RNA sequence: CAUCAACAGGUCUGUGGUUGAAAAUCGAUGCCAGUCGCAGGCGAAACGAUCCACGUAAGAAGAUAAAAAUAUCUUUGAGCAUGGUGCGGUUUAGGUGUAAGACCUGCCGAUUAAAUUCGAGAGAAUCAGUAGUGAGAGGUAUAUACCGAGUAGCGAACGUUCCUGCAGGCGAGUGUGGGGGAAAAGACCAGGUCAGCUGUUUGACG
Numbered sequence: 001c002a003u004c005a006a007c008a009g010g011u012c013u014g015u016g017g018u019u020g021a022a023a024a025u026c027g028a029u030g031c032c033a034g035u036c037g038c039a040g041g042c043g044a045a046a047c048g049a050u051c052c053a054c055g056u057a058a059g060a061a062g063a064u065a066a067a068a069a070u071a072u073c074u075u076u077g078a079g080c081a082u083g084g085u086g087c088g089g090u091u092u093a094g095g096u097g098u099a100a101g102a103c104c105u106g107c108c109g110a111u112u113a114a115a116u117u118c119g120a121g122a123g124a125a126u127c128a129g130u131a132g133u134g135a136g137a138g139g140u141a142u143a144u145a146c147c148g149a150g151u152a153g154c155g156a157a158c159g160u161u162c163c164u165g166c167a168g169g170c171g172a173g174u175g176u177g178g179g180g181g182a183a184a185a186g187a188c189c190a191g192g193u194c195a196g197c198u199g200u201u202u203g204a205c206g
Stems, first nucleotide, its partner, number of pairs: 001206001003204003006200004012196003015190005028176003031041001033091007050084002058076003062072001082183001103169005108119003123162004132154002138147003
Dot-bracket structure: (.(((((((..((((((((........((([.(((((((.]........((......(((.(.........).))).....[)))))))))...........((((((((......)))...((((.....((....(((....))).....))....))))..)))))....)))......]..)))))...))))))).))).)
raiA RNA: a 206-nucleotide RNA sequence. The family's RNA type in Rfam is riboswitch.